Rfam assigns this 356-nucleotide part of an RNA from Halohasta litchfieldiae to the family "Archaeal large subunit ribosomal RNA".
Pairs were carried over by alignment from the consensus structure, which is taken from published work.
NCBI's taxonomy places the organism under Archaea, Halobacteria, Halobacteriales, Haloferacaceae, Halohasta.
It scores 2786 bits against the family's covariance model.
A reference for the family is Yusupov et al. (2001), "Crystal structure of the ribosome at 5.5 A resolution", Science.
Clan: LSU clan.

RNA sequence: CACAGUAGCAGCUAUAGUCGGGUGAGAACCUCGACGACCUUAUGAGCAAGGGUUCCUCAGCACUGUCAAUCAGCUGAGGGUUAGUCGGUCCUAAGUCUAUCCGUAAUUCGAAAUAGACAACAGGGAAACUGGUUAAUAUUCCAGUACCGUCACCAUUCAACGCCAACGCCUUGGGAAACAACGAGCCGGGCAGUCGCCCGGUCGAAUCGAGGAACUCCGUGGAAGCCGUAACGGCACGAAGCGGACGAAUCUCGAGAUAGAGAAAUUCGUUGGUACCUAGGGCCCGUGAAAAGGCAAGUGUGAUGUCCGUACCAAGAUCCGACACAGGUGCUCUGGCAGCGAAAGCCAAGGUCUGU
Numbered sequence: 001c002a003c004a005g006u007a008g009c010a011g012c013u014a015u016a017g018u019c020g021g022g023u024g025a026g027a028a029c030c031u032c033g034a035c036g037a038c039c040u041u042a043u044g045a046g047c048a049a050g051g052g053u054u055c056c057u058c059a060g061c062a063c064u065g066u067c068a069a070u071c072a073g074c075u076g077a078g079g080g081u082u083a084g085u086c087g088g089u090c091c092u093a094a095g096u097c098u099a100u101c102c103g104u105a106a107u108u109c110g111a112a113a114u115a116g117a118c119a120a121c122a123g124g125g126a127a128a129c130u131g132g133u134u135a136a137u138a139u140u141c142c143a144g145u146a147c148c149g150u151c152a153c154c155a156u157u158c159a160a161c162g163c164c165a166a167c168g169c170c171u172u173g174g175g176a177a178a179c180a181a182c183g184a185g186c187c188g189g190g191c192a193g194u195c196g197c198c199c200g201g202u203c204g205a206a207u208c209g210a211g212g213a214a215c216u217c218c219g220u221g222g223a224a225g226c227c228g229u230a231a232c233g234g235c236a237c238g239a240a241g242c243g244g245a246c247g248a249a250u251c252u253c254g255a256g257a258u259a260g261a262g263a264a265a266u267u268c269g270u271u272g273g274u275a276c277c278u279a280g281g282g283c284c285c286g287u288g289a290a291a292a293g294g295c296a297a298g299u300g301u302g303a304u305g306u307c308c309g310u311a312c313c314a315a316g317a318u319c320c321g322a323c324a325c326a327g328g329u330g331c332u333c334u335g336g337c338a339g340c341g342a343a344a345g346c347c348a349a350g351g352u353c354u355g356u
Base pairs, nucleotide, nucleotide: 017035018034019033020032021031022030036353037352038351039350044333045332046331047330050313051312055079056078057077058076059075060074064072065071086309087308088307090124091123095118096117097116098115099114100113102110103109128145129144130143131142132141148305149304150303151302152301153300162295163294164293168283169282170281171280172279173278174277175276179272180271181270182269183268185202186201187200188199189198207255208254209253210252216245217244218243219242220241225235226234227233319328320327334348335347336346337345